Overview: Shown here is a 147-nucleotide RNA from Pseudomonas graminis, a member of the family "PrrF RNA". Its family is annotated with sRNA-mediated gene silencing in the Gene Ontology. About the family: PrrF RNA is a small RNA involved in iron homeostasis and is found exclusively in Pseudomonas species. It is annotated as a small RNA. A reference for the family is Djapgne et al. (2018), "The Pseudomonas aeruginosa PrrF1 and PrrF2 small regulatory RNAs (sRNAs) promote 2-alkyl-4-quinolone production through redundant regulation of the antR mRNA", J Bacteriol. Taxonomically the source falls in Pseudomonas (Bacteria, Pseudomonadati, Gammaproteobacteria, Pseudomonadales). The match comes from Rfam's covariance-model search (155 bits).
[Rfam]
RNA sequence: UUGACUCUCAAAUGGGAAUGAUUAUUAUUGAGCGCAACCGGUCGCGAGACUGGUUGGUAACCCAGAAGCCUUAGGUCGGCUUCCGGAUUAUCUCCUCAUCAGGCUAAUCACGGUUUUUGACCCGGCUUAUAGCCGGGUCUUUUUUUA
Numbered sequence: 001u002u003g004a005c006u007c008u009c010a011a012a013u014g015g016g017a018a019u020g021a022u023u024a025u026u027a028u029u030g031a032g033c034g035c036a037a038c039c040g041g042u043c044g045c046g047a048g049a050c051u052g053g054u055u056g057g058u059a060a061c062c063c064a065g066a067a068g069c070c071u072u073a074g075g076u077c078g079g080c081u082u083c084c085g086g087a088u089u090a091u092c093u094c095c096u097c098a099u100c101a102g103g104c105u106a107a108u109c110a111c112g113g114u115u116u117u118u119g120a121c122c123c124g125g126c127u128u129a130u131a132g133c134c135g136g137g138u139c140u141u142u143u144u145u146u147a
Stems, first nucleotide, its partner, number of pairs: 035056009062086002065083004069078001094103003119139008